Shown here is a 67-nucleotide sequence from Massilia polaris, a member of the family "Betaproteobacteria toxic small RNA". Rfam 15.1 lists 951 matches to the family in 508 species. Rfam describes the family as follows. Overexpression in amino aid rich medium attenuates growth, suggesting role in repressing amino acid intake and metabolism.

RNA sequence: UGUCUCCUCCAACUCUCCUCAGAAAAGAAUUGGAUUUAAGCCCGCCCUCAACAGCGGGCUUUUUUUU
Numbered sequence: 001u002g003u004c005u006c007c008u009c010c011a012a013c014u015c016u017c018c019u020c021a022g023a024a025a026a027g028a029a030u031u032g033g034a035u036u037u038a039a040g041c042c043c044g045c046c047c048u049c050a051a052c053a054g055c056g057g058g059c060u061u062u063u064u065u066u067u
Base pairs, nucleotide, nucleotide: 008034009033010032011031012030014028015027038061039060040059041058042057043056044055045054